[Rfam]
RNA sequence: GUUCGCGCUGAAGGCCUGUUUCCUAGGCUACACGGGGGACUUGUUCCUCCUCUGGUUGCCCAGGGGAAAAGUCCCGGACCUCGGGCAGAAAGUGCCACGUGCUCACGCACGUAGACCCUCCCGCCCUUCACAUUCAGCCCACUGAGAAGCAAACCCGCGUGGGACGGGGAAGCUGAGCGGCGUGUUGCGGGAUGUCACCCGUCAGCUGUCAUGGUGACGCAGGCAGUGCGCACGUAGGUGCGCACCAACCAAGCGGGGCUCAUUCUCAGGGCGGC
Numbered sequence: 001g002u003u004c005g006c007g008c009u010g011a012a013g014g015c016c017u018g019u020u021u022c023c024u025a026g027g028c029u030a031c032a033c034g035g036g037g038g039a040c041u042u043g044u045u046c047c048u049c050c051u052c053u054g055g056u057u058g059c060c061c062a063g064g065g066g067a068a069a070a071g072u073c074c075c076g077g078a079c080c081u082c083g084g085g086c087a088g089a090a091a092g093u094g095c096c097a098c099g100u101g102c103u104c105a106c107g108c109a110c111g112u113a114g115a116c117c118c119u120c121c122c123g124c125c126c127u128u129c130a131c132a133u134u135c136a137g138c139c140c141a142c143u144g145a146g147a148a149g150c151a152a153a154c155c156c157g158c159g160u161g162g163g164a165c166g167g168g169g170a171a172g173c174u175g176a177g178c179g180g181c182g183u184g185u186u187g188c189g190g191g192a193u194g195u196c197a198c199c200c201g202u203c204a205g206c207u208g209u210c211a212u213g214g215u216g217a218c219g220c221a222g223g224c225a226g227u228g229c230g231c232a233c234g235u236a237g238g239u240g241c242g243c244a245c246c247a248a249c250c251a252a253g254c255g256g257g258g259c260u261c262a263u264u265c266u267c268a269g270g271g272c273g274g275c
Stems, first nucleotide, its partner, number of pairs: 003274004008269004014224006022065001023063002026060003035049005070260002073258001074256002084096004097112006114196003119192006129184003139180002142177001226245006
Dot-bracket structure: ..((((.((((..((((((..(((.(((......(((((.....)))))........))).)).)....[[.[[[........((((.....))))((((((....)))))).(((..((((((....(((.......((.(..................................).)).)))..)))))).)))......................)))))).((((((........)))))).........]].]]].....)))).)))).
RNA: RNase MRP